[Rfam]
RNA sequence: GGCUGGCCGGAAGGUAGUGAUUCAUCUCAAAUGAUUGUUCACAGUCAGUCACAGAUUGAAAUCCUUGUUCUACUCUUUCUCCCCGUCUCAUUACUGUAAUUGACUAGUAUUUU
Numbered sequence: 001g002g003c004u005g006g007c008c009g010g011a012a013g014g015u016a017g018u019g020a021u022u023c024a025u026c027u028c029a030a031a032u033g034a035u036u037g038u039u040c041a042c043a044g045u046c047a048g049u050c051a052c053a054g055a056u057u058g059a060a061a062u063c064c065u066u067g068u069u070c071u072a073c074u075c076u077u078u079c080u081c082c083c084c085g086u087c088u089c090a091u092u093a094c095u096g097u098a099a100u101u102g103a104c105u106a107g108u109a110u111u112u113u
Stems, first nucleotide, its partner, number of pairs: 002108005008102001010101002014097002016092005044074001047071002
RNA: Y RNA